About this RNA:
The family of this 54-nucleotide RNA sequence is "Glutamine riboswitch aptamer (glnA leader)". Rfam's curators put it in the seed alignment. Gene Ontology term of the family: glutamine binding.
[Rfam]
RNA sequence: UACGUUCAUCCUACAGUGUAGGACGGAAGUAGACGUAAGUCGAAGGAACGCACC
Numbered sequence: 001u002a003c004g005u006u007c008a009u010c011c012u013a014c015a016g017u018g019u020a021g022g023a024c025g026g027a028a029g030u031a032g033a034c035g036u037a038a039g040u041c042g043a044a045g046g047a048a049c050g051c052a053c054c
Stems, first nucleotide, its partner, number of pairs: 003050005009023005026051001032041003
Overview: On this family, see Ames and Breaker, RNA Biol 2011: "Bacterial aptamers that selectively bind glutamine". The family's consensus secondary structure is taken from published work.